Source information: The record is a 35-nucleotide sequence, which matches "DUF805b RNA" in Rfam. The family's consensus secondary structure is taken from published work.

RNA sequence: ACAGGCGCAGCCGAAAACCUGGAAUAGAGUAGGCA
Numbered sequence: 001a002c003a004g005g006c007g008c009a010g011c012c013g014a015a016a017a018c019c020u021g022g023a024a025u026a027g028a029g030u031a032g033g034c035a
Stems, first nucleotide, its partner, number of pairs: 002021004010034003
Dot-bracket structure: .((((....[[[.....))))..........]]].